[Rfam]
Rfam assigns this 252-nucleotide RNA sequence from Citrobacter koseri to the family "Erse small RNA".
Lineage of the source: Bacteria > Pseudomonadati > Enterobacteriaceae > Citrobacter > Citrobacter koseri.
Pairs were carried over by alignment from the consensus structure, which was predicted with RNAfold.
The sequence is in the family's curated seed alignment.

RNA sequence: CCCGCAGAGCUUUUAGCGCCUUAUACCGGCGAUAUCGCGGCGGAAGGGAUCAGCAAAGUCCUGCGUGGCGGCGCUAAGUUUUUACGUCAUAACAUUCAGCGUCAGCAGCGUUAUAUCGCUGAGGCGAUGACUGAAGAGUGGCGUAUGGCGCCUGGGCCGCUGGAAGUGGCAUGGUUUGCAGAAGAAACGGCAGCCGUUGAGCGUGCAGUAGACGCGCUGACUAAACGGCUGGAAAAACUGGAGGCCAAAUGA
Number, nucleotide and partner (000 for none) at each position: 001c244002c243003c000004g000005c240006a082007g081008a080009g079010c078011u077012u000013u053014u052015a000016g050017c000018g000019c047020c046021u045022u044023a000024u000025a000026c000027c040028g000029g038030c037031g036032a000033u000034a000035u000036c031037g030038c029039g000040g027041c000042g000043g000044a022045a021046g020047g019048g000049a000050u016051c000052a014053g013054c000055a000056a000057a000058g000059u000060c000061c000062u000063g074064c073065g072066u071067g000068g000069c000070g000071g066072c065073g064074c063075u000076a000077a011078g010079u009080u008081u007082u006083u000084a000085c214086g213087u212088c211089a000090u208091a000092a000093c205094a204095u203096u000097c000098a000099g144100c143101g142102u141103c140104a139105g000106c000107a000108g000109c000110g000111u000112u000113a000114u000115a128116u127117c126118g125119c124120u000121g000122a000123g000124g119125c118126g117127a116128u115129g000130a000131c000132u000133g000134a000135a000136g000137a000138g000139u104140g103141g102142c101143g100144u099145a000146u000147g000148g179149c178150g177151c000152c174153u173154g172155g000156g000157c169158c168159g167160c166161u165162g000163g000164a000165a161166g160167u159168g158169g157170c000171a000172u154173g153174g152175u000176u000177u150178g149179c148180a000181g000182a000183a000184g000185a000186a198187a197188c196189g195190g194191c000192a000193g000194c190195c189196g188197u187198u186199g000200a000201g000202c000203g095204u094205g093206c000207a000208g090209u000210a000211g088212a087213c086214g085215c000216g000217c231218u000219g229220a000221c228222u227223a000224a000225a000226c000227g222228g221229c219230u000231g217232g000233a000234a000235a000236a000237a000238c000239u000240g005241g000242a000243g002244g001245c000246c000247a000248a000249a000250u000251g000252a000